[Rfam]
RNA sequence: GCCCUCGUAGCUCAAUGGACAGAGCACCUGACUUCGAAUCAGUAGGUUGUGGGUUCGAGUCCCGCCGGGGGCG
Number, nucleotide and partner (000 for none) at each position: 001g072002c071003c070004c069005u068006c067007g066008u000009a000010g025011c024012u023013c022014a000015a000016u000017g000018g000019a000020c000021a000022g013023a012024g011025c010026a000027c000028c042029u041030g040031a039032c000033u000034u000035c000036g000037a000038a000039u031040c030041a029042g028043u000044a000045g000046g000047u000048u000049g065050u064051g063052g062053g061054u000055u000056c000057g000058a000059g000060u000061c053062c052063c051064g050065c049066c007067g006068g005069g004070g003071g002072c001073g000

A member of the RNA family "tRNA" from Levilinea saccharolytica, 73 nucleotides long. Rfam describes the family as follows. Transfer RNA (tRNA) molecules are approximately 80 nucleotides in length. Their secondary structure includes four short double-helical elements and three loops (D, anti-codon, and T loops). Further hydrogen bonds mediate the characteristic L-shaped molecular structure. tRNAs have two regions of fundamental functional importance: the anti-codon, which is responsible for specific mRNA codon recognition, and the 3' end, to which the tRNAs corresponding amino acid is attached (by aminoacyl-tRNA synthetases). tRNAs cope with the degeneracy of the genetic code in two manners: having more than one tRNA (with a specific anti-codon) for a particular amino acid; and 'wobble' base-pairing, i.e. permitting non-standard base-pairing at the 3rd anti-codon position.